[Rfam]
RNA sequence: GGUGAUAAAUCGUAUCGUGCAAUAGGCGCAGCGGACCCGGGGGCAGUACCCGGCGGCUCCACCACAUGUCCCGCUAGGCGGGGCGUCUGACGGGGCCGAACUAGGAUCGACGUGUGUUGAAAAGCGAUUGCUUUCACUCGGCCUGAGUACGCCGUAAAAAGGUUCAAAACUCACAAGUGCCAACGAUAACGAGGCUCUUGCUCUUGCUGCGUAA
Numbered sequence: 001g002g003u004g005a006u007a008a009a010u011c012g013u014a015u016c017g018u019g020c021a022a023u024a025g026g027c028g029c030a031g032c033g034g035a036c037c038c039g040g041g042g043g044c045a046g047u048a049c050c051c052g053g054c055g056g057c058u059c060c061a062c063c064a065c066a067u068g069u070c071c072c073g074c075u076a077g078g079c080g081g082g083g084c085g086u087c088u089g090a091c092g093g094g095g096c097c098g099a100a101c102u103a104g105g106a107u108c109g110a111c112g113u114g115u116g117u118u119g120a121a122a123a124g125c126g127a128u129u130g131c132u133u134u135c136a137c138u139c140g141g142c143c144u145g146a147g148u149a150c151g152c153c154g155u156a157a158a159a160a161g162g163u164u165c166a167a168a169a170c171u172c173a174c175a176a177g178u179g180c181c182a183a184c185g186a187u188a189a190c191g192a193g194g195c196u197c198u199u200g201c202u203c204u205u206g207c208u209g210c211g212u213a214a
Stems, first nucleotide, its partner, number of pairs: 001138005014128004027116003031113003037053005054098007139154004

Shown here is a 214-nucleotide RNA, a member of the family "permuted transfer-messenger RNA". Rfam classes the family as a non-coding RNA gene. The literature on the family includes a 1996 paper in RNA by Williams and Bartel, "Phylogenetic analysis of tmRNA secondary structure". The match comes from Rfam's covariance-model search (140 bits). Rfam links the family to the GO term RNA catabolic process.